[Rfam]
RNA sequence: ACGACUAUACUUGAACAGGAUCUGUUCUAUAGUGCGUACAUCUAAUCUGUGUUCUCCAACACAGACAAGACCUUCAACCCGGACGAUGAUCCAGGGCUCUCCGUUCUGAGCGCGAUUACCGCGGCUCUGUCCCAAUCCCUCGGGAGUGGAGUGGAGCUUGCUAGAUGAACGUCCCGCCUGCUCAUUCCAGCAGGCGGUGAUGGACGGAGAGCGUUCUGACGGGUA
Numbered sequence: 001a002c003g004a005c006u007a008u009a010c011u012u013g014a015a016c017a018g019g020a021u022c023u024g025u026u027c028u029a030u031a032g033u034g035c036g037u038a039c040a041u042c043u044a045a046u047c048u049g050u051g052u053u054c055u056c057c058a059a060c061a062c063a064g065a066c067a068a069g070a071c072c073u074u075c076a077a078c079c080c081g082g083a084c085g086a087u088g089a090u091c092c093a094g095g096g097c098u099c100u101c102c103g104u105u106c107u108g109a110g111c112g113c114g115a116u117u118a119c120c121g122c123g124g125c126u127c128u129g130u131c132c133c134a135a136u137c138c139c140u141c142g143g144g145a146g147u148g149g150a151g152u153g154g155a156g157c158u159u160g161c162u163a164g165a166u167g168a169a170c171g172u173c174c175c176g177c178c179u180g181c182u183c184a185u186u187c188c189a190g191c192a193g194g195c196g197g198u199g200a201u202g203g204a205c206g207g208a209g210a211g212c213g214u215u216c217u218g219a220c221g222g223g224u225a
Stems, first nucleotide, its partner, number of pairs: 001037002005032003013027006043067001046065001048063006077224005096212011110172003123158008132149003136145003174197009

This 225-nucleotide RNA sequence from Ceratodon purpureus belongs to the Rfam family "Plant small nucleolar RNA U3".
The base pairs follow the family's consensus structure, which is taken from published work.
Rfam's curators write: Small nucleolar RNAs (snoRNAs) are involved in the processing and modification of rRNA in the nucleolus. There are two main classes of snoRNAs: the box C/D class, and the box H/ACA class. U3 snoRNA is a member of the box C/D class. Indeed, the box C/D element is a subset of the six short sequence elements found in all U3 snoRNAs, namely boxes A, A', B, C, C', and D. The U3 snoRNA secondary structure is characterised by a small 5' domain (with boxes A and A'), and a larger 3' domain (with boxes B, C, C', and D), the two domains being linked by a single-stranded hinge. Boxes B and C form the B/C motif, which appears to be exclusive to U3 snoRNAs, and boxes C' and D form the C'/D motif. The latter is functionally similar to the C/D motifs found in other snoRNAs. The 5' domain and the hinge region act as a pre-rRNA-binding domain. The 3' domain has conserved protein-binding sites. Both the box B/C and box C'/D motifs are sufficient for nuclear retention of U3 snoRNA. The box C'/D motif is also necessary for nucleolar localisation, stability and hyper-methylation of U3 snoRNA. Both box B/C and C'/D motifs are involved in specific protein interactions and are necessary for the rRNA processing functions of U3 snoRNA.
The family is grouped with related families in Rfam's "U3 clan".
Gene Ontology terms of the family: RNA processing and nucleolus.
It is annotated as a C/D-box small nucleolar RNA.